[Rfam]
RNA sequence: AGCUCGAACCCACCCACGUGUGGCAGGAGCGGGGGACCCAGGUAGUACGCCGUAUCGGAAAUUUCGGACGGCUUGGGGUUAAUUCGCGCAACCAGCGCGAACGGGCAUCUCCAGCCCGAACCCGACAGCUCACCUCGCAGGCGCCGGAGAGGAAUGCG
Numbered sequence: 001a002g003c004u005c006g007a008a009c010c011c012a013c014c015c016a017c018g019u020g021u022g023g024c025a026g027g028a029g030c031g032g033g034g035g036a037c038c039c040a041g042g043u044a045g046u047a048c049g050c051c052g053u054a055u056c057g058g059a060a061a062u063u064u065c066g067g068a069c070g071g072c073u074u075g076g077g078g079u080u081a082a083u084u085c086g087c088g089c090a091a092c093c094a095g096c097g098c099g100a101a102c103g104g105g106c107a108u109c110u111c112c113a114g115c116c117c118g119a120a121c122c123c124g125a126c127a128g129c130u131c132a133c134c135u136c137g138c139a140g141g142c143g144c145c146g147g148a149g150a151g152g153a154a155u156g157c158g
Stems, first nucleotide, its partner, number of pairs: 002142003009027002029138006039075005076123003084100004103117004
This 158-nucleotide RNA from Streptomyces sp. ISL-10 belongs to the Rfam family "c-di-AMP riboswitch aptamer (ydaO/yuaA leader)". The source organism's lineage runs through Bacteria, Actinomycetes, Kitasatosporales, Streptomycetaceae and Streptomyces.